[Rfam]
RNA sequence: UUGCAAUGAUGACAACUUAGGACACCUUUGGAUAACUCAUGAAAAGACUUCACUGACUGAGCAAU
Number, nucleotide and partner (000 for none) at each position: 001u064002u063003g062004c061005a000006a000007u000008g000009a000010u000011g000012a000013c000014a000015a000016c000017u000018u000019a000020g000021g000022a000023c000024a000025c000026c000027u000028u000029u000030g000031g000032a000033u000034a000035a000036c000037u000038c000039a000040u000041g000042a000043a000044a000045a000046g000047a000048c000049u000050u000051c000052a000053c000054u000055g000056a000057c000058u000059g000060a000061g004062c003063a002064a001065u000
The family of this 65-nucleotide RNA sequence from Clupea harengus is "Small nucleolar RNA SNORD58". Rfam's curators write: snoRNA U58 is found in introns 1, 3 and 6 of the ribosomal protein RPL17 gene in humans. A search with the family's covariance model found it, with a score of 61 bits. The source organism's lineage runs through Eukaryota, Bilateria, Actinopterygii, Clupeinae and Clupea.